[Rfam]
RNA sequence: CGGGCACUGCCCUUCUCGUCAACGGUUGCAUUCCGGUGGCCUUAAGCAAUUCCGAGGGAGCUGGCUCUGUCCGGGCCCUGGUCCGGUUACCCGGCGCCCACCUGUACAUACAGGUCCUCGGGAAUGAGAUAACCCGACGGUUGCGGCGGUCCCGUC
Numbered sequence: 001c002g003g004g005c006a007c008u009g010c011c012c013u014u015c016u017c018g019u020c021a022a023c024g025g026u027u028g029c030a031u032u033c034c035g036g037u038g039g040c041c042u043u044a045a046g047c048a049a050u051u052c053c054g055a056g057g058g059a060g061c062u063g064g065c066u067c068u069g070u071c072c073g074g075g076c077c078c079u080g081g082u083c084c085g086g087u088u089a090c091c092c093g094g095c096g097c098c099c100a101c102c103u104g105u106a107c108a109u110a111c112a113g114g115u116c117c118u119c120g121g122g123a124a125u126g127a128g129a130u131a132a133c134c135c136g137a138c139g140g141u142u143g144c145g146g147c148g149g150u151c152c153c154g155u156c
Stems, first nucleotide, its partner, number of pairs: 003153002006150006012143001015140001017139003031124004036119001038117001039115003056099003060095005069088001071086006
RNA: 6S / SsrS RNA
Organism: Rhodosalinus halophilus